A member of the RNA family "SL2 RNA" from Cylicocyclus nassatus, 110 nucleotides long. By type it is a non-coding RNA gene. The base pairs follow the family's consensus structure, which is taken from published work. Its family is annotated with mRNA trans splicing, via spliceosome in the Gene Ontology. Its Rfam clan is "SL clan". Rfam 15.1 lists 598 matches to the family in 38 species. This family represents SL2 RNA. SL2 RNA is involved in trans splicing in lower eukaryotes. Trans-splicing is a form of RNA processing. The acquisition of a spliced leader from a SL RNA is a intra-molecular reaction which precisely joins exons derived from separately transcribed RNAs.

RNA sequence: GGUUUUAACCCAGUAUCUCAAGGUACUACGGGCGUCCGACCUUCCACCUGUGGUUGUGUCGUAAACCUUAAUUUUUGGAUCGCUUUUCUGGGGUUAUCCGGAAGAGCAAA
Numbered sequence: 001g002g003u004u005u006u007a008a009c010c011c012a013g014u015a016u017c018u019c020a021a022g023g024u025a026c027u028a029c030g031g032g033c034g035u036c037c038g039a040c041c042u043u044c045c046a047c048c049u050g051u052g053g054u055u056g057u058g059u060c061g062u063a064a065a066c067c068u069u070a071a072u073u074u075u076u077g078g079a080u081c082g083c084u085u086u087u088c089u090g091g092g093g094u095u096a097u098c099c100g101g102a103a104g105a106g107c108a109a110a
Stems, first nucleotide, its partner, number of pairs: 008035001009032002013029002016025001018023001037061004041056001044053002084108001086106004092099002